RNA sequence: AGCUUAGAAAUACACAAGAGUGUGUAUAAAGCGAUUGAAUGAGUUGAGUUAGAGAAUAGGGUAGCAGAGAAUGAGUGUAGUUGAGCUGAGACAUGUAUGUUUAUUCUACCCAAAAGAAGCCUUUCUUUUGGGUUUAUUUG
Dot-bracket structure: .(((.....((((((......))))))..)))..........................((((((.((((((((.((..............))...))).))).)))))))).............................